A member of the RNA family "Vault RNA" from Muntiacus reevesi, 97 nucleotides long.
Lineage of the source: Eukaryota > Vertebrata > Gnathostomata > Boreoeutheria > Muntiacus.
Pairs were carried over by alignment from the consensus structure, which is taken from published work.
The match comes from Rfam's covariance-model search (84 bits).
RNA sequence: GGGCUGGCUGUAGCUCAGCGGUUCCUUCGAGUUCAUCAUGUCAAAUUACUCUCUCUUGAGGGUGGUUCGAGACCCGCGGGCGCUCUCCAGUCCUUUU
Numbered sequence: 001g002g003g004c005u006g007g008c009u010g011u012a013g014c015u016c017a018g019c020g021g022u023u024c025c026u027u028c029g030a031g032u033u034c035a036u037c038a039u040g041u042c043a044a045a046u047u048a049c050u051c052u053c054u055c056u057u058g059a060g061g062g063u064g065g066u067u068c069g070a071g072a073c074c075c076g077c078g079g080g081c082g083c084u085c086u087c088c089a090g091u092c093c094u095u096u097u
Stems, first nucleotide, its partner, number of pairs: 002092006013081004018077004026071005